Shown here is a 135-nucleotide RNA from Chrysochloris asiatica, a member of the family "U8 small nucleolar RNA". For this family Rfam cites "A small nucleolar RNA functions in rRNA processing in Caenorhabditis elegans" (Hokii et al., Nucleic Acids Res, 2010). Gene Ontology terms of the family: nucleolus and RNA processing. The family's consensus secondary structure is taken from published work.

RNA sequence: UCGUCAGUAAGGUUAAUCCUUACCUGUUCCUCCUUUUGGAGAACAGAGAUAGCAUGAUGAUUGGAGCUCGCAUGAUACGUGAUUAGCAUUUCCGCGUAAGCAGGACUUGCAACAUCCUGUUUGCUCUUAUCUGAU
Numbered sequence: 001u002c003g004u005c006a007g008u009a010a011g012g013u014u015a016a017u018c019c020u021u022a023c024c025u026g027u028u029c030c031u032c033c034u035u036u037u038g039g040a041g042a043a044c045a046g047a048g049a050u051a052g053c054a055u056g057a058u059g060a061u062u063g064g065a066g067c068u069c070g071c072a073u074g075a076u077a078c079g080u081g082a083u084u085a086g087c088a089u090u091u092c093c094g095c096g097u098a099a100g101c102a103g104g105a106c107u108u109g110c111a112a113c114a115u116c117c118u119g120u121u122u123g124c125u126c127u128u129a130u131c132u133g134a135u
Stems, first nucleotide, its partner, number of pairs: 024046003028043001030041004074092002077089001079087001080085001096124009